TPP riboswitch aptamer (THI element): a 104-nucleotide RNA from Tessaracoccus sp. OH4464_COT-324. A search with the family's covariance model found it, with a score of 70 bits. NCBI's taxonomy places the organism under Bacteria, Bacillati, Actinomycetota, Actinomycetes, Tessaracoccus.
RNA sequence: CCGAGUUCACAGGGGAGCGCCGCCCGGGCGCUGAGAGUGCUUUGCAGCAGACCCUCAAACCUGAUCCGGUUCGCACCGGCGUAGGGAGUGAGUGUUCUCCUUGG
Numbered sequence: 001c002c003g004a005g006u007u008c009a010c011a012g013g014g015g016a017g018c019g020c021c022g023c024c025c026g027g028g029c030g031c032u033g034a035g036a037g038u039g040c041u042u043u044g045c046a047g048c049a050g051a052c053c054c055u056c057a058a059a060c061c062u063g064a065u066c067c068g069g070u071u072c073g074c075a076c077c078g079g080c081g082u083a084g085g086g087a088g089u090g091a092g093u094g095u096u097c098u099c100c101u102u103g104g
Base pairs, nucleotide, nucleotide: 006092007091008090009089010088011055012054013053014052017031018030019029020028021027038049039048040047041046060085061084062083063082066079067078068077069076